[Rfam]
RNA sequence: CGUGCACGCGGUCGGCGGCUGACCGUACGGCGGACGUCCCGUACGGCGAGUGUCCGUACGGCGAGUGUCCAUACGGCGGACGCCUUCGUCACGAAGCACUGCAGUGCCCCGCACCGGACAGGUGCGGGGCACUGCAGUGUC
Number, nucleotide and partner (000 for none) at each position: 001c000002g000003u000004g000005c000006a000007c000008g000009c025010g024011g023012u022013c021014g000015g000016c000017g000018g000019c000020u000021g013022a012023c011024c010025g009026u000027a000028c000029g000030g000031c000032g000033g000034a000035c000036g081037u080038c079039c061040c060041g059042u058043a057044c056045g055046g053047c052048g000049a000050g000051u000052g047053u046054c000055c045056g044057u043058a042059c041060g040061g039062c078063g077064a000065g000066u075067g074068u000069c000070c000071a000072u000073a000074c067075g066076g000077c063078g062079g038080a037081c036082g097083c096084c000085u000086u000087c000088g000089u000090c000091a000092c000093g000094a000095a000096g083097c082098a138099c137100u136101g135102c134103a133104g132105u131106g130107c129108c128109c127110c126111g125112c124113a123114c122115c121116g000117g000118a000119c000120a000121g115122g114123u113124g112125c111126g110127g109128g108129g107130c106131a105132c104133u103134g102135c101136a100137g099138u098139g000140u000141c000
RNA: sbcD RNA
Organism: Actinacidiphila alni